The family of this 87-nucleotide sequence from Miscanthus lutarioriparius is "Small nucleolar RNA SNORD24". For this family Rfam cites "U24, a novel intron-encoded small nucleolar RNA with two 12 nt long, phylogenetically conserved complementarities to 28S rRNA" (Qu et al., Nucleic Acids Res, 1995). Rfam 15.1 lists 2,843 matches to the family in 1,188 species.
RNA sequence: GGCUGGUGAUGUGAUCAAAAUAUUUGCUACUCUUGAUGGGGCAAGAGUCCCGCCUGAUGAUCGCGAACCACCAAGAUCUCUGAGGCC
Numbered sequence: 001g002g003c004u005g006g007u008g009a010u011g012u013g014a015u016c017a018a019a020a021u022a023u024u025u026g027c028u029a030c031u032c033u034u035g036a037u038g039g040g041g042c043a044a045g046a047g048u049c050c051c052g053c054c055u056g057a058u059g060a061u062c063g064c065g066a067a068c069c070a071c072c073a074a075g076a077u078c079u080c081u082g083a084g085g086c087c
Stems, first nucleotide, its partner, number of pairs: 001087004

By type it is a C/D-box small nucleolar RNA.